Small Cajal body-specific RNA 2: a 415-nucleotide RNA from Neotoma lepida. The family's RNA type in Rfam is small Cajal body RNA. Its family is annotated with RNA processing and nucleolus in the Gene Ontology. The family's consensus secondary structure is taken from published work. A reference for the family is Tycowski et al. (2004), "Guide RNAs with 5' caps and novel box C/D snoRNA-like domains for modification of snRNAs in metazoa", Curr Biol. Rfam 15.1 lists 612 matches to the family in 498 species. It scores 361 bits against the family's covariance model.
RNA sequence: UCCUCGCGAGUGGAGCGUGGCCGGGGUCAAGGACAGAGCUGUUUGUUGUAGUGUUGCGUGCAUGGUGCGAGUGUGCUGAGUGUGAGUGUGGAUGUGGGAGUGUGUGUGCGCGCGUGGGGCGUGCGAGGCGAGUGUGUGUGUCCGCCCCGCGCCCCUCCCCCGCCUACACCUUGAUCUUAUUUGAUCGGGUCGUGACCCCCGCCCCGCCGGGCCGCCCCGAAAUGAAAAGCAGCCCUCCUGCGAAGCCCCCUCUGCGGGGCGCUGUGCAGCGAGGCCCCCUGGGCGGUGGCAGUGCCGCGGUUCCCGAGGUCUCGGAAUCGGUCCUGCGGGCCCGGCGCUCAGAAGUGAUGAAUUGAUCAGAUAGACGAGGCCGGGUCUGUCCCGGCCACUGAUUACCGAGGCGAUUCUGAUCUGA
Numbered sequence: 001u002c003c004u005c006g007c008g009a010g011u012g013g014a015g016c017g018u019g020g021c022c023g024g025g026g027u028c029a030a031g032g033a034c035a036g037a038g039c040u041g042u043u044u045g046u047u048g049u050a051g052u053g054u055u056g057c058g059u060g061c062a063u064g065g066u067g068c069g070a071g072u073g074u075g076c077u078g079a080g081u082g083u084g085a086g087u088g089u090g091g092a093u094g095u096g097g098g099a100g101u102g103u104g105u106g107u108g109c110g111c112g113c114g115u116g117g118g119g120c121g122u123g124c125g126a127g128g129c130g131a132g133u134g135u136g137u138g139u140g141u142c143c144g145c146c147c148c149g150c151g152c153c154c155c156u157c158c159c160c161c162g163c164c165u166a167c168a169c170c171u172u173g174a175u176c177u178u179a180u181u182u183g184a185u186c187g188g189g190u191c192g193u194g195a196c197c198c199c200c201g202c203c204c205c206g207c208c209g210g211g212c213c214g215c216c217c218c219g220a221a222a223u224g225a226a227a228a229g230c231a232g233c234c235c236u237c238c239u240g241c242g243a244a245g246c247c248c249c250c251u252c253u254g255c256g257g258g259g260c261g262c263u264g265u266g267c268a269g270c271g272a273g274g275c276c277c278c279c280u281g282g283g284c285g286g287u288g289g290c291a292g293u294g295c296c297g298c299g300g301u302u303c304c305c306g307a308g309g310u311c312u313c314g315g316a317a318u319c320g321g322u323c324c325u326g327c328g329g330g331c332c333c334g335g336c337g338c339u340c341a342g343a344a345g346u347g348a349u350g351a352a353u354u355g356a357u358c359a360g361a362u363a364g365a366c367g368a369g370g371c372c373g374g375g376u377c378u379g380u381c382c383c384g385g386c387c388a389c390u391g392a393u394u395a396c397c398g399a400g401g402c403g404a405u406u407c408u409g410a411u412c413u414g415a
Stems, first nucleotide, its partner, number of pairs: 051152004055071001057069004088101001093098001104141003109136005115130002180228003185220004191214002194212001197211003201207002249309003255306005261301003266298002269295003274290003277286002318335004322330003340414004350407006369387004374382002